Shown here is a 91-nucleotide RNA from Cellulomonas sp. PhB143, a member of the family "Glycine riboswitch aptamer". On this family, see Babina et al., MBio 2017: "In Vivo Behavior of the Tandem Glycine Riboswitch in Bacillus subtilis". The base pairs follow the family's consensus structure.
RNA sequence: CGAACCGCGACGGGAGAGCCCGGGUCCGCCCGGCGCCGAAGGAGCAACCCCUCCCCGGGAAUCUCUCAGGCCCCCAGACCGUCACGGUGAG
Numbered sequence: 001c002g003a004a005c006c007g008c009g010a011c012g013g014g015a016g017a018g019c020c021c022g023g024g025u026c027c028g029c030c031c032g033g034c035g036c037c038g039a040a041g042g043a044g045c046a047a048c049c050c051c052u053c054c055c056c057g058g059g060a061a062u063c064u065c066u067c068a069g070g071c072c073c074c075c076a077g078a079c080c081g082u083c084a085c086g087g088u089g090a091g
Base pairs, nucleotide, nucleotide: 006086007085009083010082011081012080013079020033021032022031023030035071036070037069038067039066042065043064044063048058049057